[Rfam]
Overview: The family of this 67-nucleotide sequence from Toxostoma redivivum is "Small nucleolar RNA SNORD75". The organism belongs to Toxostoma, within Eukaryota. Its family is annotated with nucleolus and RNA processing in the Gene Ontology. The match comes from Rfam's covariance-model search (61 bits).
RNA sequence: AGCCUGUGAUGGUUUCAGUAUGAGAGUAGUGGUCAGAAGUGAUUUCUGAAAACUCAAUGCUGAGGCU
Numbered sequence: 001a002g003c004c005u006g007u008g009a010u011g012g013u014u015u016c017a018g019u020a021u022g023a024g025a026g027u028a029g030u031g032g033u034c035a036g037a038a039g040u041g042a043u044u045u046c047u048g049a050a051a052a053c054u055c056a057a058u059g060c061u062g063a064g065g066c067u
Base pairs, nucleotide, nucleotide: 001067002066003065004064

On this family, see Galardi et al., Mol Cell Biol 2002: "Purified box C/D snoRNPs are able to reproduce site-specific 2'-O-methylation of target RNA in vitro".